[Rfam]
RNA sequence: AGCCUGGGAUGAUAUUUGUGUAAGAGUAGUGGACAGAAGAGAUUUCUGAGAAGUUGCAAACUGAGGCU
Numbered sequence: 001a002g003c004c005u006g007g008g009a010u011g012a013u014a015u016u017u018g019u020g021u022a023a024g025a026g027u028a029g030u031g032g033a034c035a036g037a038a039g040a041g042a043u044u045u046c047u048g049a050g051a052a053g054u055u056g057c058a059a060a061c062u063g064a065g066g067c068u
Stems, first nucleotide, its partner, number of pairs: 001068004
Dot-bracket structure: ((((............................................................))))